[Rfam]
RNA sequence: CGAGACGAUCCGUGACGCAUAAAAAAACGCCGAAAAUACAGUCAAGAUAACCUUGAAAACGUGAGGGAUGACCUCAUUUAAUCUCCAGUAGCAAUUUUGACCUGUAUUGGAGGAGUUAUGCGUCUGGAUCGUCUUAC
Numbered sequence: 001c002g003a004g005a006c007g008a009u010c011c012g013u014g015a016c017g018c019a020u021a022a023a024a025a026a027a028c029g030c031c032g033a034a035a036a037u038a039c040a041g042u043c044a045a046g047a048u049a050a051c052c053u054u055g056a057a058a059a060c061g062u063g064a065g066g067g068a069u070g071a072c073c074u075c076a077u078u079u080a081a082u083c084u085c086c087a088g089u090a091g092c093a094a095u096u097u098u099g100a101c102c103u104g105u106a107u108u109g110g111a112g113g114a115g116u117u118a119u120g121c122g123u124c125u126g127g128a129u130c131g132u133c134u135u136a137c
Base pairs, nucleotide, nucleotide: 002135003134004133005132006131007130008129009128010127011126012125014124015123016122017121018120019119021117022116024042029039051066052065053064054063055062067078068077069076070075082113083112084111085110086109087108088107089106090105
Yersinia sRNA 155(RyfD): a 137-nucleotide RNA from Chimaeribacter arupi. Rfam describes the family as follows. The sRNA was identified by and is confirmed to have a stable secondary structure by using genome-wide structure probing at different temperatures. The function is unknown. A search with the family's covariance model found it, with a score of 118 bits. The organism belongs to Chimaeribacter, within Bacteria.